mir-275 microRNA precursor family: a 92-nucleotide sequence from Drosophila navojoa. The family's consensus secondary structure was predicted with RNAalifold. Its family is annotated with miRNA-mediated post-transcriptional gene silencing and RISC complex in the Gene Ontology. NCBI's taxonomy places the organism under Eukaryota, Insecta, Brachycera, Acalyptratae, mojavensis species complex.
[Rfam]
RNA sequence: UCGUCUUUUACCGUGCGCGCUAAUCAGUGACCGGGGCUGGUUUGGUUAUCUCACAGUCAGGUACCUGAAGUAGCGCGCGUGGUGGCUAGACG
Numbered sequence: 001u002c003g004u005c006u007u008u009u010a011c012c013g014u015g016c017g018c019g020c021u022a023a024u025c026a027g028u029g030a031c032c033g034g035g036g037c038u039g040g041u042u043u044g045g046u047u048a049u050c051u052c053a054c055a056g057u058c059a060g061g062u063a064c065c066u067g068a069a070g071u072a073g074c075g076c077g078c079g080u081g082g083u084g085g086c087u088a089g090a091c092g
Stems, first nucleotide, its partner, number of pairs: 009084004014079001016077007030062003035058004